This 207-nucleotide RNA sequence from Paraburkholderia sp. BL10I2N1 belongs to the Rfam family "Burkholderia sRNA Bp1_Cand738_SIPHT". NCBI's taxonomy places the organism under Bacteria, Pseudomonadota, Burkholderiales, Burkholderiaceae, Paraburkholderia. It is annotated as a small RNA.

Nucleotides: 207
Base pairs, nucleotide, nucleotide: 008028009027010026011025013023014022047110048109049108050107051106055073056072058070059069080092081091082090083089084088137175138174139173142170143169144168145167148166149165150164151163
Number, partner (000 for none) and nucleotide at each position: 001000a002000a003000a004000a005000a006000a007000a008028c009027u010026g011025g012000c013023g014022c015000u016000c017000a018000a019000a020000a021000a022014g023013c024000a025011c026010c027009a028008g029000c030000g031000a032000g033000g034000a035000c036000a037000a038000c039000a040000g041000g042000c043000a044000a045000g046000a047110c048109c049108g050107u051106c052000a053000a054000a055073u056072g057000c058070c059069g060000u061000g062000c063000a064000g065000g066000g067000a068000u069059c070058g071000a072056c073055a074000a075000a076000c077000g078000g079000u080092g081091a082090c083089g084088c085000g086000u087000u088084g089083c090082g091081u092080c093000a094000g095000u096000a097000g098000a099000c100000c101000g102000g103000g104000g105000u106051g107050g108049u109048g110047g111000u112000c113000a114000a115000a116000a117000a118000a119000u120000g121000c122000a123000a124000g125000a126000c127000c128000u129000g130000c131000a132000a133000c134000c135000a136000a137175u138174g139173u140000g141000g142170a143169c144168g145167g146000a147000u148166u149165c150164u151163a152000a153000c154000a155000g156000g157000g158000u159000u160000u161000u162000a163151u164150a165149g166148a167145u168144c169143g170142u171000c172000a173139a174138c175137g176000c177000u178000a179000u180000g181000a182000a183000a184000a185000g186000u187000u188000a189000a190000a191000g192000u193000u194000a195000u196000a197000a198000c199000u200000a201000a202000u203000u204000g205000u206000a207000a